[Rfam]
RNA sequence: GCUUUAAAUAAUUAGCUUUAAAUAUUAUAGAACUACUAUAUUAGCGCACAGACGCUAAGAAAGUCAGUCCCAAAAGAAUAUAUUUUCGCCAACACCAGGGGACUUUUAGUCCCGCAGAUCUGUUUUACCCCGCCAUCUGGAUGCCUUUACAUUCAGAUGGCUGUAA
Numbered sequence: 001g002c003u004u005u006a007a008a009u010a011a012u013u014a015g016c017u018u019u020a021a022a023u024a025u026u027a028u029a030g031a032a033c034u035a036c037u038a039u040a041u042u043a044g045c046g047c048a049c050a051g052a053c054g055c056u057a058a059g060a061a062a063g064u065c066a067g068u069c070c071c072a073a074a075a076g077a078a079u080a081u082a083u084u085u086u087c088g089c090c091a092a093c094a095c096c097a098g099g100g101g102a103c104u105u106u107u108a109g110u111c112c113c114g115c116a117g118a119u120c121u122g123u124u125u126u127a128c129c130c131c132g133c134c135a136u137c138u139g140g141a142u143g144c145c146u147u148u149a150c151a152u153u154c155a156g157a158u159g160g161c162u163g164u165a166a
Stems, first nucleotide, its partner, number of pairs: 001123002007119001011037001013035003017032003021028001039060001041058006063115002067111001069109001072106002076087003089100002132161012